[Rfam]
RNA: Archaeal large subunit ribosomal RNA, nucleotides 2666 to 2916
RNA sequence: UGGAACCUGACGGGAACGCUCGUAUAGUACGAGAGGAACUACGAGUGGUGACCACUGGUGUACCGGUUGUCCGAGAGGGCAUGUGCCGGGCAGCUACGUCACACGGGGUAAGAGCUGAACGCAUCUAAGCUCGAAACCCACCUGGAAAAGAGGUUCCGCUUGAGAGUCCUCGUAGAAGACGAGGUAGAUAGACUCGGGGUGUACGCACCAAGGCAACGAGGUGUUGAGCCCGCGAGAACUAAUCACUCGAG
Numbered sequence: 001u002g003g004a005a006c007c008u009g010a011c012g013g014g015a016a017c018g019c020u021c022g023u024a025u026a027g028u029a030c031g032a033g034a035g036g037a038a039c040u041a042c043g044a045g046u047g048g049u050g051a052c053c054a055c056u057g058g059u060g061u062a063c064c065g066g067u068u069g070u071c072c073g074a075g076a077g078g079g080c081a082u083g084u085g086c087c088g089g090g091c092a093g094c095u096a097c098g099u100c101a102c103a104c105g106g107g108g109u110a111a112g113a114g115c116u117g118a119a120c121g122c123a124u125c126u127a128a129g130c131u132c133g134a135a136a137c138c139c140a141c142c143u144g145g146a147a148a149a150g151a152g153g154u155u156c157c158g159c160u161u162g163a164g165a166g167u168c169c170u171c172g173u174a175g176a177a178g179a180c181g182a183g184g185u186a187g188a189u190a191g192a193c194u195c196g197g198g199g200u201g202u203a204c205g206c207a208c209c210a211a212g213g214c215a216a217c218g219a220g221g222u223g224u225u226g227a228g229c230c231c232g233c234g235a236g237a238a239c240u241a242a243u244c245a246c247u248c249g250a251g
Base pairs, nucleotide, nucleotide: 001158002157003156004155005154006153007152008151011144012143013142014141017047018046019045020044021043022042023041024040048102049101050100051099052098056096057095058094063089064088065087066086067085068081069080070079071078072077105139106138107137112132113131114130115129116128164248165247166246167245168184169183170182171181172180189241190240191239193236194235195234196233197231198230199229205224206223207222208221209220212217